The record is a 60-nucleotide RNA from Hibiscus syriacus, which matches "Plastid-psbN 5UTR RNA" in Rfam. It scores 57 bits against the family's covariance model. A reference for the family is Zhelyazkova et al. (2012), "The primary transcriptome of barley chloroplasts: numerous noncoding RNAs and the dominating role of the plastid-encoded RNA polymerase", Plant Cell. The family's consensus secondary structure was predicted with LocARNA.
RNA sequence: UGUGACACCCAUCAAAUAGUUGUUCCCCAUCCAGGGGCUACCUUACCAUAUAUCGAAUUC
Numbered sequence: 001u002g003u004g005a006c007a008c009c010c011a012u013c014a015a016a017u018a019g020u021u022g023u024u025c026c027c028c029a030u031c032c033a034g035g036g037g038c039u040a041c042c043u044u045a046c047c048a049u050a051u052a053u054c055g056a057a058u059u060c
Base pairs, nucleotide, nucleotide: 016044019041020040022038023037024036025035026034
From the family's description: Plastid psbN is a non-coding RNA (ncRNA) recognised in plastids. It was reported as a conserved 11 stem-loop in the prime untranslated region (5UTR) of psbN genes. It has been reported that the motif is retained in a subset of mature transcripts in barley, which can suggests a possible role in transcript alternative 5 prime processing. Taxonomically the source falls in Hibiscus (Eukaryota, Embryophyta, Mesangiospermae, Malvales).